[Rfam]
RNA sequence: CAGCAGAGCAUUGCCCCGCAAUGAAGGGGUUUGAAAC
Numbered sequence: 001c002a003g004c005a006g007a008g009c010a011u012u013g014c015c016c017c018g019c020a021a022u023g024a025a026g027g028g029g030u031u032u033g034a035a036a037c
Stems, first nucleotide, its partner, number of pairs: 012033002014029004